Notes
CRISPR RNA direct repeat element: a 30-nucleotide RNA from Clostridium botulinum. It is one of the family's seed sequences. The family has 20 seed sequences and 1,947 matches in Rfam 15.1. The family's consensus secondary structure was predicted with WAR. Rfam links the family to the GO term defense response.

RNA sequence: GCUUAAAUACAUCUUAUGUUACUGUUCAAC
Dot-bracket structure: ........((((...))))...........